[Rfam]
RNA sequence: UAGCUUUGUCCUAAGUUAAAUUACUAUAACUUUGACAAAGUUUUACAAAAAUAUAUAAAUAUUUAAAGUACCAAAAUAAUUGCACUAUCAAAACAUAUCUCAUGGUGGAUUUAAUGAAACUAAUUGAAUGUUGUAAAUGUUGGUGCUUUUUUCUAUGAACUUGGUCAAAGUUAGAGAAGUUUGACUUAGGACAAAUAUAA
Numbered sequence: 001u002a003g004c005u006u007u008g009u010c011c012u013a014a015g016u017u018a019a020a021u022u023a024c025u026a027u028a029a030c031u032u033u034g035a036c037a038a039a040g041u042u043u044u045a046c047a048a049a050a051a052u053a054u055a056u057a058a059a060u061a062u063u064u065a066a067a068g069u070a071c072c073a074a075a076a077u078a079a080u081u082g083c084a085c086u087a088u089c090a091a092a093a094c095a096u097a098u099c100u101c102a103u104g105g106u107g108g109a110u111u112u113a114a115u116g117a118a119a120c121u122a123a124u125u126g127a128a129u130g131u132u133g134u135a136a137a138u139g140u141u142g143g144u145g146c147u148u149u150u151u152u153c154u155a156u157g158a159a160c161u162u163g164g165u166c167a168a169a170g171u172u173a174g175a176g177a178a179g180u181u182u183g184a185c186u187u188a189g190g191a192c193a194a195a196u197a198u199a200a
Base pairs, nucleotide, nucleotide: 005195006194007193008192009191011189012188013187014186015185016184017183018182019181020180021179022178024176025175031169032168033167034166035165044155045154047152048151049150050149051148054145055144056143058141059140060139061138062137063136064135065134067132072126073125074124
The record is a 200-nucleotide RNA from Dichanthelium oligosanthes, which matches "MIR1435 microRNA precursor family" in Rfam.